[Rfam]
RNA sequence: GGUGGAACCGACCCACCGGUGAUGUCCUACAGGGGAGAGCAUCAAACCACCAUAAGGUGCUUUGGUGGCAGCGUCAAGGUAUUGAGCGUUAUGGAAAAGGCCACGUCAAGAGCGUGGUCAGGU
Number, nucleotide and partner (000 for none) at each position: 001g017002g016003u015004g014005g013006a000007a000008c000009c000010g000011a000012c000013c005014c004015a003016c002017c001018g043019g042020u041021g040022a000023u038024g000025u036026c035027c034028u033029a000030c000031a000032g000033g028034g027035g026036a025037g000038a023039g000040c021041a020042u019043c018044a000045a000046a000047c000048c122049a000050c094051c093052a092053u091054a090055a089056g083057g082058u000059g080060c079061u078062u000063u076064g075065g074066u073067g000068g000069c000070a000071g000072c000073g066074u065075c064076a063077a000078g061079g060080u059081a000082u057083u056084g000085a000086g000087c000088g000089u055090u054091a053092u052093g051094g050095a000096a000097a000098a000099g119100g118101c117102c116103a115104c114105g000106u000107c000108a000109a000110g000111a000112g000113c000114g104115u103116g102117g101118u100119c099120a000121g000122g048123u000
A member of the RNA family "Group II catalytic intron D1-D4-2" from Cyclobacterium marinum, 123 nucleotides long. The pairing is the family consensus, mapped onto this sequence. Group II introns are found in rRNA, tRNA and mRNA of organelles in fungi, plants and protists, and also in mRNA in bacteria.